[Rfam]
RNA: SAM riboswitch aptamer (S box leader)
Organism: Oceanobacillus iheyensis
RNA sequence: AUCUUAUCCUGAGAGGUGGAGGGAAAUGGCCCAAAGAAGCCUCGGCAACAGGUUCUAGCUUGAAUACUGUGCCAAAUCCAUCAAGUAUUCUAUGCUUGGUAGAUAAGAG
Numbered sequence: 001a002u003c004u005u006a007u008c009c010u011g012a013g014a015g016g017u018g019g020a021g022g023g024a025a026a027u028g029g030c031c032c033a034a035a036g037a038a039g040c041c042u043c044g045g046c047a048a049c050a051g052g053u054u055c056u057a058g059c060u061u062g063a064a065u066a067c068u069g070u071g072c073c074a075a076a077u078c079c080a081u082c083a084a085g086u087a088u089u090c091u092a093u094g095c096u097u098g099g100u101a102g103a104u105a106a107g108a109g
Stems, first nucleotide, its partner, number of pairs: 002108007013043005021032003026081004044073004049069002051065001053063002077101001082098006